Background
A member of the RNA family "tRNA" from Oxalobacter vibrioformis, 82 nucleotides long. The match comes from Rfam's covariance-model search (54 bits). NCBI's taxonomy places the organism under Bacteria, Pseudomonadota, Betaproteobacteria, Burkholderiales, Oxalobacter. Rfam's curators write: Transfer RNA (tRNA) molecules are approximately 80 nucleotides in length.
[Rfam]
RNA sequence: GCCCACGUGGCGGAAUUGGUAGACGCGCACGGUUCAGGUCCGUGUGUUGAGAGACGUGGGGGUUCAAAUCCCUCCGUGGGCA
Dot-bracket structure: (((((((..(((...........))).(((((.......))))).............(((((.......)))))))))))).